[Rfam]
RNA sequence: ACGCAUGUCAGACCACUGUCUCCCUCUCAAGCCAUAGGGAGUGACGGUGUCCAAAGAAACAUGCUACAGUAACACAUUUUGGAGUUCACAGGGCCAUCGAUCUUUCAGAAUUGACCGUUUGGUAGUAUCGGACUCCAACAGAA
Dot-bracket structure: ..((((((..........(.(.(.((..........))).).)...............))))))................((((........((...((.((..........)).))....)).........)))).......